Rfam assigns this 147-nucleotide RNA sequence from Hibiscus syriacus to the family "small nucleolar RNA snoR135". The family's RNA type in Rfam is H/ACA-box small nucleolar RNA. The literature on the family includes a 2009 paper in Nucleic Acids Res by Chen and Wu, "Mining small RNA sequencing data: a new approach to identify small nucleolar RNAs in Arabidopsis".
[Rfam]
RNA sequence: AGAGCAUGGAUAGUGUGUAUCGACGUUGUGCAAAACUUCCAAUGCACUCUGCUCGAAAGAGUUUCCUGCAAAAUUGAUUUGGGGAAGAUGGGCAGUUGUGCUUCAUAUCUAUCGUUGAUUCUUUCAACAAUCUUCUUCCCCAUAUUC
Numbered sequence: 001a002g003a004g005c006a007u008g009g010a011u012a013g014u015g016u017g018u019a020u021c022g023a024c025g026u027u028g029u030g031c032a033a034a035a036c037u038u039c040c041a042a043u044g045c046a047c048u049c050u051g052c053u054c055g056a057a058a059g060a061g062u063u064u065c066c067u068g069c070a071a072a073a074u075u076g077a078u079u080u081g082g083g084g085a086a087g088a089u090g091g092g093c094a095g096u097u098g099u100g101c102u103u104c105a106u107a108u109c110u111a112u113c114g115u116u117g118a119u120u121c122u123u124u125c126a127a128c129a130a131u132c133u134u135c136u137u138c139c140c141c142a143u144a145u146u147c
Stems, first nucleotide, its partner, number of pairs: 004069003008065003015047006081141008090132002095128004
Dot-bracket structure: ...(((.(((....((((((.....................))))))...............))).)))...........((((((((.((...((((..........................))))..)).))))))))......

Its family is annotated with RNA processing and nucleolus in the Gene Ontology.